[Rfam]
RNA sequence: UGUACGAAAAGGCAAAAUCACUGAAAGGUGAUGACGCAAAACUAUAGGGGCUAAAGUCUUAAUGAUUAUGCUAGCCAGUUCCCGAA
Number, nucleotide and partner (000 for none) at each position: 001u000002g000003u000004a000005c000006g000007a000008a000009a000010a000011g000012g037013c036014a000015a000016a000017a032018u031019c030020a029021c028022u027023g000024a000025a000026a000027g022028g021029u020030g019031a018032u017033g000034a000035c000036g013037c012038a000039a000040a080041a079042c078043u077044a000045u000046a000047g076048g075049g072050g071051c070052u000053a000054a000055a000056g066057u065058c064059u000060u000061a000062a000063u000064g058065a057066u056067u000068a000069u000070g051071c050072u049073a000074g000075c048076c047077a043078g042079u041080u040081c000082c000083c000084g000085a000086a000
The record is an 86-nucleotide RNA from Aquibacillus halophilus, which matches "c-di-GMP-I riboswitch aptamer" in Rfam. The family's consensus secondary structure is taken from published work. Gene Ontology term of the family: cyclic-di-GMP binding. About the family: GEMM was predicted in a large-scale screen for bacterial structured RNA regulatory elements. Genes associated with GEMM are involved in a diverse array of functions, including chemotaxis regulation, signal transduction, secretion and chitin.